[Rfam]
RNA sequence: AUAAUGAUACUUCUAUUCCGUUGUUGCCAGCCCGCCGAGAGAAAAGGGCCGGAGGUGAGAUGCCUAUGA
Numbered sequence: 001a002u003a004a005u006g007a008u009a010c011u012u013c014u015a016u017u018c019c020g021u022u023g024u025u026g027c028c029a030g031c032c033c034g035c036c037g038a039g040a041g042a043a044a045a046g047g048g049c050c051g052g053a054g055g056u057g058a059g060a061u062g063c064c065u066a067u068g069a
Base pairs, nucleotide, nucleotide: 012066013026015024016023027052028051031048032047033046053065054064055063
Rfam assigns this 69-nucleotide RNA to the family "pemK RNA".